[Rfam]
RNA: FMN riboswitch aptamer (RFN element)
RNA sequence: AAUCGUUUUCGAGGUAGGGUGUAAUUCCCAACCGGCGGUUAAAGCCCGCAACCCACUUUUUGGUGGCUGAUUUGGUGAAAAUCCAAAGCCGAUGGUCAGAGUCCAGAUGAAAGAAAACGUAC
Numbered sequence: 001a002a003u004c005g006u007u008u009u010c011g012a013g014g015u016a017g018g019g020u021g022u023a024a025u026u027c028c029c030a031a032c033c034g035g036c037g038g039u040u041a042a043a044g045c046c047c048g049c050a051a052c053c054c055a056c057u058u059u060u061u062g063g064u065g066g067c068u069g070a071u072u073u074g075g076u077g078a079a080a081a082u083c084c085a086a087a088g089c090c091g092a093u094g095g096u097c098a099g100a101g102u103c104c105a106g107a108u109g110a111a112a113g114a115a116a117a118c119g120u121a122c
Stems, first nucleotide, its partner, number of pairs: 004119007017029003031102002033091002035049004044089002053066002071087005093105003